[Rfam]
RNA sequence: UGCCGAAGUUUUCCUCGGCAUUUAACUGCAGCCGGUUCUUUAAAAUUUCGGCAGUUAACUGCCGUAGGAUAUU
Numbered sequence: 001u002g003c004c005g006a007a008g009u010u011u012u013c014c015u016c017g018g019c020a021u022u023u024a025a026c027u028g029c030a031g032c033c034g035g036u037u038c039u040u041u042a043a044a045a046u047u048u049c050g051g052c053a054g055u056u057a058a059c060u061g062c063c064g065u066a067g068g069a070u071a072u073u
Stems, first nucleotide, its partner, number of pairs: 012069002015066001016064005022058008
Annotation: This 73-nucleotide RNA from Medicago truncatula belongs to the Rfam family "MIR2629 microRNA precursor family". It scores 65 bits against the family's covariance model. Gene Ontology terms of the family: miRNA-mediated post-transcriptional gene silencing and RISC complex. The family's consensus secondary structure was predicted with RNAalifold.